[Rfam]
RNA sequence: GUGAGAUUGACGAGAGAUAUCUUUAUGAAUUAAGUAAAGAAGCCGAAGGAGCAAUUUAAAGUUCGCCAAAUUUUAAAGAAACUUUCAGGCAAAUGUAUCGUUAAUUGAUG
Numbered sequence: 001g002u003g004a005g006a007u008u009g010a011c012g013a014g015a016g017a018u019a020u021c022u023u024u025a026u027g028a029a030u031u032a033a034g035u036a037a038a039g040a041a042g043c044c045g046a047a048g049g050a051g052c053a054a055u056u057u058a059a060a061g062u063u064c065g066c067c068a069a070a071u072u073u074u075a076a077a078g079a080a081a082c083u084u085u086c087a088g089g090c091a092a093a094u095g096u097a098u099c100g101u102u103a104a105u106u107g108a109u110g
Base pairs, nucleotide, nucleotide: 006105007104008103009102010101011100012099013098020040021039022038023037024036025035026034042090043089044088045086046085049084050083051082055077056076057075058074059073060072061071062070063069

This 110-nucleotide RNA from Romboutsia maritimum belongs to the Rfam family "Glycine riboswitch aptamer".
A search with the family's covariance model found it, with a score of 56 bits.
The organism belongs to Romboutsia, within Bacteria.